[Rfam]
RNA sequence: AGCCAUGCAGUGAGCACAAAGCGAACUAUUCUUUCGCCUUUUACUAAAGAAUACCGUGUGCGCGCUGCAUUUAGUGGCAUACGCCUAUUUUUGGAGGGGUUCUCAAAUUGAGUGUCU
Numbered sequence: 001a002g003c004c005a006u007g008c009a010g011u012g013a014g015c016a017c018a019a020a021g022c023g024a025a026c027u028a029u030u031c032u033u034u035c036g037c038c039u040u041u042u043a044c045u046a047a048a049g050a051a052u053a054c055c056g057u058g059u060g061c062g063c064g065c066u067g068c069a070u071u072u073a074g075u076g077g078c079a080u081a082c083g084c085c086u087a088u089u090u091u092u093g094g095a096g097g098g099g100u101u102c103u104c105a106a107a108u109u110g111a112g113u114g115u116c117u
Stems, first nucleotide, its partner, number of pairs: 003077004008067005014061005027053008095117001098116003102112002